RNA sequence: UGAAAAGUCCUCUAGGGUUCCGCAGCUGCAUGGCUGGACUGGUCCGAGAGAGGACACACAGGAACACCUGUGUACACGGAGGGAAAAAAACCCGGGAGAU
Numbered sequence: 001u002g003a004a005a006a007g008u009c010c011u012c013u014a015g016g017g018u019u020c021c022g023c024a025g026c027u028g029c030a031u032g033g034c035u036g037g038a039c040u041g042g043u044c045c046g047a048g049a050g051a052g053g054a055c056a057c058a059c060a061g062g063a064a065c066a067c068c069u070g071u072g073u074a075c076a077c078g079g080a081g082g083g084a085a086a087a088a089a090a091c092c093c094g095g096g097a098g099a100u
Stems, first nucleotide, its partner, number of pairs: 007055006015045002020042002022039001023036005056073007075095001077098001081093003
RNA: Guanidine-I riboswitch aptamer